A member of the RNA family "Plastid-rps12 3UTR RNA" from Musa balbisiana, 97 nucleotides long. A reference for the family is Richter et al. (2023), "Retrograde signaling in plants: A critical review focusing on the GUN pathway and beyond", Plant Commun. The base pairs follow the family's consensus structure, which was predicted with LocARNA. Plastid rpl20 is a non-coding RNA (ncRNA) recognised in plastids. By type it is a cis-regulatory element. Rfam 15.1 lists 1,710 matches to the family in 1,426 species.
RNA sequence: GGUUUCCAUUGGUGCAAAUCCAAUCACCUAGAUUUGAGAUGAAAAGCAAUUCCCCAUUGGUACAAAUAGUUUGAUCCAUUAAGCGGCGGAAUAGUAU
Numbered sequence: 001g002g003u004u005u006c007c008a009u010u011g012g013u014g015c016a017a018a019u020c021c022a023a024u025c026a027c028c029u030a031g032a033u034u035u036g037a038g039a040u041g042a043a044a045a046g047c048a049a050u051u052c053c054c055c056a057u058u059g060g061u062a063c064a065a066a067u068a069g070u071u072u073g074a075u076c077c078a079u080u081a082a083g084c085g086g087c088g089g090a091a092u093a094g095u096a097u
Stems, first nucleotide, its partner, number of pairs: 009023004052088001054086002056079002059076003062072001064070001